Rfam assigns this 125-nucleotide RNA sequence from Nannospalax galili to the family "Small nucleolar RNA SNORA84". The match comes from Rfam's covariance-model search (108 bits). Rfam classes the family as an H/ACA-box small nucleolar RNA. The family's consensus secondary structure was predicted with WAR.
RNA sequence: ACCCUGUGGUUGCUGGAGGUAGGUACAGUUCUCCAGUGGGUACAGUGGGCCAGAGAAAUCCUGUGAUUUAUGUAUGGGAGCUGUUUCUUCUCAGCAGCUGCCAUAACCCAGUCACUGGUACAUUG
Numbered sequence: 001a002c003c004c005u006g007u008g009g010u011u012g013c014u015g016g017a018g019g020u021a022g023g024u025a026c027a028g029u030u031c032u033c034c035a036g037u038g039g040g041u042a043c044a045g046u047g048g049g050c051c052a053g054a055g056a057a058a059u060c061c062u063g064u065g066a067u068u069u070a071u072g073u074a075u076g077g078g079a080g081c082u083g084u085u086u087c088u089u090c091u092c093a094g095c096a097g098c099u100g101c102c103a104u105a106a107c108c109c110a111g112u113c114a115c116u117g118g119u120a121c122a123u124u125g
Stems, first nucleotide, its partner, number of pairs: 002049003007042002010039008019029002061117001063115006072107002074104004079099007